[Rfam]
RNA sequence: GAGUGUCCAUGACGUUAAAAUACUAAAUCCCCUGGAUGUGUUUUAGUUGAUUUUAGUCUC
Numbered sequence: 001g002a003g004u005g006u007c008c009a010u011g012a013c014g015u016u017a018a019a020a021u022a023c024u025a026a027a028u029c030c031c032c033u034g035g036a037u038g039u040g041u042u043u044u045a046g047u048u049g050a051u052u053u054u055a056g057u058c059u060c
Stems, first nucleotide, its partner, number of pairs: 001060003014047010028036003